This 67-nucleotide sequence belongs to the Rfam family "L31-Gammaproteobacteria ribosomal protein leader". Clan: Ribosomal Protein L31 Leader clan. It is annotated as a cis-regulatory leader. A reference for the family is Eckert and Weinberg (2020), "Discovery of 20 novel ribosomal leader candidates in bacteria and archaea", BMC Microbiol.
RNA sequence: CAUGCGGUGCCUGGCGCCUGGUAAUUCAGAUGCCCCGCGAUCAGGUAGCGGCAUGACCUAACGAGGU
Numbered sequence: 001c002a003u004g005c006g007g008u009g010c011c012u013g014g015c016g017c018c019u020g021g022u023a024a025u026u027c028a029g030a031u032g033c034c035c036c037g038c039g040a041u042c043a044g045g046u047a048g049c050g051g052c053a054u055g056a057c058c059u060a061a062c063g064a065g066g067u
Base pairs, nucleotide, nucleotide: 001055002054003053004052005051007049008048011044012043013042014041015039016038017037